[Rfam]
RNA sequence: AAAUUUGGUAGACACUUAAUGAUGAAUAGGUUGGGUUAGAUUUGAUUUGAGAUCUUGAGUCACCAGGCAGUCCCAAUUUUUUUUACGAAAUAUUAGGAGUGUGCUGAUGUCAGCAUAGAUGAUGUAUUAUACAUGUUUUGUGUGGUUUGCUAUAUUUCUACUUAUAGAUGGCUAAAAUCUGAGUUUGAGAGCAGCAUGCCACAGAUGCUUGGAUUUUACUAUUGGAUUUUGCUGCCGGAAUAGGGCUUUCGGGACACUUAUUCCUUUGCUUAAGACCAACUCUGUUUUCGCCUUUGCCCCUUCAUCAUUAUACAAAAUGUCUACCAUUACCACACCCACACAUUGAUAUUAUGACUAAUUGUUUAUUAGCUAAGUUCCCAUGGCCACUUUUUACUUUUUUCUCAUUUUCUUAUUUUUAUUAUAUUUUCUGUCACUUCUGAAGUGACGGAAAAGAGGAGUUUGAAUUAGAUUUGCAAAACGGGCGGUAUCAAGAAUACUGUCACUCUAUAUGUCUAAUUUAUCGUCAACUCUGCAAAAAGAAAAUAGGAAGAAGAAAAUAGGCGGAUAAGAGUAUAUAG
Numbered sequence: 001a002a003a004u005u006u007g008g009u010a011g012a013c014a015c016u017u018a019a020u021g022a023u024g025a026a027u028a029g030g031u032u033g034g035g036u037u038a039g040a041u042u043u044g045a046u047u048u049g050a051g052a053u054c055u056u057g058a059g060u061c062a063c064c065a066g067g068c069a070g071u072c073c074c075a076a077u078u079u080u081u082u083u084u085a086c087g088a089a090a091u092a093u094u095a096g097g098a099g100u101g102u103g104c105u106g107a108u109g110u111c112a113g114c115a116u117a118g119a120u121g122a123u124g125u126a127u128u129a130u131a132c133a134u135g136u137u138u139u140g141u142g143u144g145g146u147u148u149g150c151u152a153u154a155u156u157u158c159u160a161c162u163u164a165u166a167g168a169u170g171g172c173u174a175a176a177a178u179c180u181g182a183g184u185u186u187g188a189g190a191g192c193a194g195c196a197u198g199c200c201a202c203a204g205a206u207g208c209u210u211g212g213a214u215u216u217u218a219c220u221a222u223u224g225g226a227u228u229u230u231g232c233u234g235c236c237g238g239a240a241u242a243g244g245g246c247u248u249u250c251g252g253g254a255c256a257c258u259u260a261u262u263c264c265u266u267u268g269c270u271u272a273a274g275a276c277c278a279a280c281u282c283u284g285u286u287u288u289c290g291c292c293u294u295u296g297c298c299c300c301u302u303c304a305u306c307a308u309u310a311u312a313c314a315a316a317a318u319g320u321c322u323a324c325c326a327u328u329a330c331c332a333c334a335c336c337c338a339c340a341c342a343u344u345g346a347u348a349u350u351a352u353g354a355c356u357a358a359u360u361g362u363u364u365a366u367u368a369g370c371u372a373a374g375u376u377c378c379c380a381u382g383g384c385c386a387c388u389u390u391u392u393a394c395u396u397u398u399u400u401c402u403c404a405u406u407u408u409c410u411u412a413u414u415u416u417u418a419u420u421a422u423a424u425u426u427u428c429u430g431u432c433a434c435u436u437c438u439g440a441a442g443u444g445a446c447g448g449a450a451a452a453g454a455g456g457a458g459u460u461u462g463a464a465u466u467a468g469a470u471u472u473g474c475a476a477a478a479c480g481g482g483c484g485g486u487a488u489c490a491a492g493a494a495u496a497c498u499g500u501c502a503c504u505c506u507a508u509a510u511g512u513c514u515a516a517u518u519u520a521u522c523g524u525c526a527a528c529u530c531u532g533c534a535a536a537a538a539g540a541a542a543a544u545a546g547g548a549a550g551a552a553g554a555a556a557a558u559a560g561g562c563g564g565a566u567a568a569g570a571g572u573a574u575a576u577a578g
Stems, first nucleotide, its partner, number of pairs: 006326008066111003141203006149195002153191001155190004160184004166180004355369005424452007432444004455531006463518008481501004486496003
The family of this 578-nucleotide part of an RNA from Saccharomyces mikatae is "Saccharomyces telomerase". For this family Rfam cites "A phylogenetically based secondary structure for the yeast telomerase RNA" (Dandjinou et al., Curr Biol, 2004).